[Rfam]
RNA sequence: GUCGUAUAAAGAUGUAUUAACUGCAAGACAAGUUAGCAUUUCCCUUUACGGCAUUGUAAAAAUUUAGAAGUUUAAGCAAAAGUAAUUGUUGCAUGGUAAAUAAUCGAAACAAUUUGAGUUUGAAUGGAAGAGGUUAACUGUAUGACCUUGUGUUGAAAAACACUAAAAACAAUCUUGAAAUAAUGAUUUUCAUUAUUCGAGUUACAGUCCU
Numbered sequence: 001g002u003c004g005u006a007u008a009a010a011g012a013u014g015u016a017u018u019a020a021c022u023g024c025a026a027g028a029c030a031a032g033u034u035a036g037c038a039u040u041u042c043c044c045u046u047u048a049c050g051g052c053a054u055u056g057u058a059a060a061a062a063u064u065u066a067g068a069a070g071u072u073u074a075a076g077c078a079a080a081a082g083u084a085a086u087u088g089u090u091g092c093a094u095g096g097u098a099a100a101u102a103a104u105c106g107a108a109a110c111a112a113u114u115u116g117a118g119u120u121u122g123a124a125u126g127g128a129a130g131a132g133g134u135u136a137a138c139u140g141u142a143u144g145a146c147c148u149u150g151u152g153u154u155g156a157a158a159a160a161c162a163c164u165a166a167a168a169a170c171a172a173u174c175u176u177g178a179a180a181u182a183a184u185g186a187u188u189u190u191c192a193u194u195a196u197u198c199g200a201g202u203u204a205c206a207g208u209c210c211u
Stems, first nucleotide, its partner, number of pairs: 001052006008045001010041006018035005023029001070125008084114007095105002131148005137208006143169001150163005174201006181195005
RNA: IS605-orfB-I RNA